Annotation
The record is a 119-nucleotide sequence from Paenibacillus sabuli, which matches "Manganese Mn2+ riboswitch aptamer (yybP-ykoY)" in Rfam. NCBI's taxonomy places the organism under Bacteria, Bacillati, Caryophanales, Paenibacillaceae, Paenibacillus. It scores 52 bits against the family's covariance model.
RNA sequence: UAUUCUCUCAAAGGGGAGUAGCGUCCGAAUCACGCUAACGAUUCGGAAACAAAGUCGUCAUUACAUGGAUCCGUGCGGUCCAUCGGCUUUGUUGGCAUGUUUGAACUUUAAUCAUGCUC
Numbered sequence: 001u002a003u004u005c006u007c008u009c010a011a012a013g014g015g016g017a018g019u020a021g022c023g024u025c026c027g028a029a030u031c032a033c034g035c036u037a038a039c040g041a042u043u044c045g046g047a048a049a050c051a052a053a054g055u056c057g058u059c060a061u062u063a064c065a066u067g068g069a070u071c072c073g074u075g076c077g078g079u080c081c082a083u084c085g086g087c088u089u090u091g092u093u094g095g096c097a098u099g100u101u102u103g104a105a106c107u108u109u110a111a112u113c114a115u116g117c118u119c
Base pairs, nucleotide, nucleotide: 025046026045027044028043029042030041031040048093049092050091051090052089053088054087055086056085057084065083066082067081068080069079070078071077094118095117096116097115098114099113
This RNA was originally discovered in E. coli during a large scale screen and was named SraF. The family was later found to exist upstream of related families of protein genes in many bacteria, including the the yybP and ykoK genes in B. subtilis. The specific functions of these proteins are unknown, but this structured RNA element may be involved in their genetic regulation as a riboswitch.